The family of this 99-nucleotide RNA sequence from Nonomuraea cavernae is "Glycine riboswitch aptamer".
Taxonomically the source falls in Nonomuraea (Bacteria, Bacillati, Actinomycetes, Streptosporangiaceae).
[Rfam]
RNA sequence: GUGACCUCUGGAAAGCAGGUCCCGCGCGGCCUCGCCGAAGGUGAAAGUCCGGGCAAAUCCUGGGCGAAGCUCUCAGGCAUCGAUGACAGAGGGGGAGGA
Number, nucleotide and partner (000 for none) at each position: 001g000002u000003g000004a000005c092006c091007u090008c089009u088010g087011g000012a000013a000014a000015g000016c000017a032018g031019g030020u029021c000022c000023c000024g000025c000026g000027c000028g000029g020030c019031c018032u017033c000034g078035c077036c076037g074038a073039a000040g000041g072042u000043g070044a000045a000046a000047g065048u064049c063050c062051g061052g060053g059054c000055a000056a000057a000058u000059c053060c052061u051062g050063g049064g048065c047066g000067a000068a000069g000070c043071u000072c041073u038074c037075a000076g036077g035078c034079a000080u000081c000082g000083a000084u000085g000086a000087c010088a009089g008090a007091g006092g005093g000094g000095g000096a000097g000098g000099a000